mraW RNA: a 104-nucleotide RNA sequence from Mycobacterium manitobense. It is annotated as a cis-regulatory element. The family has 45 seed sequences and 851 matches in Rfam 15.1. The match comes from Rfam's covariance-model search (78 bits).
RNA sequence: UGUCGCCCGUGCAUCGUGGCCUCUGUCCGAUCCGGCCCUGGCGUACUUCCCCGACGCCAGGUCCGCGCUCUCGGGCAGGGACCUCGAUGCAGGGGCGCUCCUUU
Numbered sequence: 001u002g003u004c005g006c007c008c009g010u011g012c013a014u015c016g017u018g019g020c021c022u023c024u025g026u027c028c029g030a031u032c033c034g035g036c037c038c039u040g041g042c043g044u045a046c047u048u049c050c051c052c053g054a055c056g057c058c059a060g061g062u063c064c065g066c067g068c069u070c071u072c073g074g075g076c077a078g079g080g081a082c083c084u085c086g087a088u089g090c091a092g093g094g095g096c097g098c099u100c101c102u103u104u
Stems, first nucleotide, its partner, number of pairs: 010091007018083002021080010032067001033065003037061008
Dot-bracket structure: .........(((((((.((.((((((((((.((((.((((((((.........)))))))).))).)...)))))))))).)).))))))).............